[Rfam]
RNA sequence: UUGCUAGGCAACGGCGGGCGGUUUGCCAGGUGUUUGCUGACGCAACCCCCACUGGCUGGGGCCUGGUUAAUCAUCAGCUCGCUGCUUAUAAGGCGGGUCGCUUUCCGCGACCUUUGCCCAUCCACUGCGCGGAGCUGAUCGCCGCCUGUCUCGCUCGCCGCUGGUCGGGGGCUCGAGUGUUGGGGGUCGACAAUACCAUCGUGUGCUCCGGGAAGUUCACGCACUUCCCAUGGCUGCUCGGCUGCACUGCGAACUGGAUGCUGCG
Numbered sequence: 001u002u003g004c005u006a007g008g009c010a011a012c013g014g015c016g017g018g019c020g021g022u023u024u025g026c027c028a029g030g031u032g033u034u035u036g037c038u039g040a041c042g043c044a045a046c047c048c049c050c051a052c053u054g055g056c057u058g059g060g061g062c063c064u065g066g067u068u069a070a071u072c073a074u075c076a077g078c079u080c081g082c083u084g085c086u087u088a089u090a091a092g093g094c095g096g097g098u099c100g101c102u103u104u105c106c107g108c109g110a111c112c113u114u115u116g117c118c119c120a121u122c123c124a125c126u127g128c129g130c131g132g133a134g135c136u137g138a139u140c141g142c143c144g145c146c147u148g149u150c151u152c153g154c155u156c157g158c159c160g161c162u163g164g165u166c167g168g169g170g171g172c173u174c175g176a177g178u179g180u181u182g183g184g185g186g187u188c189g190a191c192a193a194u195a196c197c198a199u200c201g202u203g204u205g206c207u208c209c210g211g212g213a214a215g216u217u218c219a220c221g222c223a224c225u226u227c228c229c230a231u232g233g234c235u236g237c238u239c240g241g242c243u244g245c246a247c248u249g250c251g252a253a254c255u256g257g258a259u260g261c262u263g264c265g
Base pairs, nucleotide, nucleotide: 001045002044003043004042005040007038008037009036010035011034014031015030017027018026019025049096050095052093055085056084059080061078062077064073065072066071107117108116119260120259121258122257123256124255129250130249131248132247134245135244141237142236144234145233146232149176150175153172154171155170156169158168159167160166183204185202188201189200190199211229212228214226215225

Annotation
This 265-nucleotide RNA sequence belongs to the Rfam family "Hepatitis B virus post-transcriptional regulatory element 1151-1410". Pairs were carried over by alignment from the consensus structure, which was predicted with RNAfold. It scores 93 bits against the family's covariance model. Part of 500 base pair long HBV PRE, contains nucleotides 1151-1410. Enhances nuclear export of intronless transcripts and represses the splicing mechanism to a comparable degree to that of the full-length PRE. It was proposed to be the core HBV PRE element. contains 3 known regulatory elements: PRE SL-alpha (nucleotides 1292-1321), human La protein binding site (nucleotide 1275-1291) and SRE-1 (nucleotides 1252-1348). The literature on the family includes a 2015 paper in Mol Biol Rep by Visootsat et al., "A conserved RNA structural element within the hepatitis B virus post-transcriptional regulatory element enhance nuclear export of intronless transcripts and repress the splicing mechanism".